A member of the RNA family "TPP riboswitch aptamer (THI element)" from Georgenia subflava, 108 nucleotides long. The base pairs follow the family's consensus structure, which is taken from published work.

[Rfam]
RNA sequence: GUCGUACCCCCGGGGAGCGCUGCAGUGCGCUGAGAGUGCGGAGAGUCCGCAGACCCGUUUACCUGAUCCGGUUCGUACCGGCGUAGGGAGCAAGGGCACUCACCGAUG
Numbered sequence: 001g002u003c004g005u006a007c008c009c010c011c012g013g014g015g016a017g018c019g020c021u022g023c024a025g026u027g028c029g030c031u032g033a034g035a036g037u038g039c040g041g042a043g044a045g046u047c048c049g050c051a052g053a054c055c056c057g058u059u060u061a062c063c064u065g066a067u068c069c070g071g072u073u074c075g076u077a078c079c080g081g082c083g084u085a086g087g088g089a090g091c092a093a094g095g096g097c098a099c100u101c102a103c104c105g106a107u108g
Base pairs, nucleotide, nucleotide: 007096008095009094011057012056013055014054017030018029019028020027037051038050039049040048041047062087063086064085065084068081069080070079071078
NCBI's taxonomy places the organism under Bacteria, Bacillati, Actinomycetota, Actinomycetes, Georgenia.